[Rfam]
RNA sequence: ACAGAUCUUUUUGUUGUCUGGGCUUUCUGGGUCUAUCACCCCCAUAUCAGAAAGCCCUUACCCCAAAAAGCAUUUG
Number, nucleotide and partner (000 for none) at each position: 001a000002c000003a000004g000005a000006u000007c070008u069009u068010u067011u066012u065013g064014u000015u000016g061017u060018c000019u000020g057021g056022g055023c054024u000025u052026u000027c050028u049029g000030g000031g000032u000033c000034u000035a000036u000037c000038a000039c000040c000041c000042c000043c000044a000045u000046a000047u000048c000049a028050g027051a000052a025053a000054g023055c022056c021057c020058u000059u000060a017061c016062c000063c000064c013065a012066a011067a010068a009069a008070g007071c000072a000073u000074u000075u000076g000
mir-129 microRNA precursor family: a 76-nucleotide RNA sequence from Xenopus laevis.
A reference for the family is Lagos-Quintana et al. (2002), "Identification of tissue-specific microRNAs from mouse", Curr Biol.
A search with the family's covariance model found it, with a score of 66 bits.
The source organism's lineage runs through Eukaryota, Metazoa, Chordata, Dipnotetrapodomorpha and Xenopus.